A member of the RNA family "ALIL pseudoknot" from Celeribacter halophilus, 118 nucleotides long. On this family, see Mazauric et al., J Biol Chem 2008: "Apical loop-internal loop RNA pseudoknots: a new type of stimulator of -1 translational frameshifting in bacteria". Taxonomically the source falls in Celeribacter (Bacteria, Pseudomonadota, Rhodobacterales, Roseobacteraceae). The family's RNA type in Rfam is cis-regulatory element.
RNA sequence: GGCUCAACUUAGCACAGGCGGAACUCGACCGCCCACUGAAGCGAUGAUUGCCUUUAUUGAAGAUCAGCGUAGCGUUUACGGUGUCGAGUCGAUCUGCAGGGUGCUGCCGAUCGCGCCG
Numbered sequence: 001g002g003c004u005c006a007a008c009u010u011a012g013c014a015c016a017g018g019c020g021g022a023a024c025u026c027g028a029c030c031g032c033c034c035a036c037u038g039a040a041g042c043g044a045u046g047a048u049u050g051c052c053u054u055u056a057u058u059g060a061a062g063a064u065c066a067g068c069g070u071a072g073c074g075u076u077u078a079c080g081g082u083g084u085c086g087a088g089u090c091g092a093u094c095u096g097c098a099g100g101g102u103g104c105u106g107c108c109g110a111u112c113g114c115g116c117c118g
Stems, first nucleotide, its partner, number of pairs: 017033005079118005090113002093110002096107004